L17 ribosomal protein downstream element: a 69-nucleotide RNA sequence from Enterococcus pallens. The family's consensus secondary structure is taken from published work.

RNA sequence: AGAGUGUUAUGAUGUUGGAGAUUAUCUCCGAGUCUAGCUCAGCGCUGCUUCCCAGAUUGUUCUGGGAAG
Numbered sequence: 001a002g003a004g005u006g007u008u009a010u011g012a013u014g015u016u017g018g019a020g021a022u023u024a025u026c027u028c029c030g031a032g033u034c035u036a037g038c039u040c041a042g043c044g045c046u047g048c049u050u051c052c053c054a055g056a057u058u059g060u061u062c063u064g065g066g067a068a069g
Stems, first nucleotide, its partner, number of pairs: 002040004011034003017029004048069009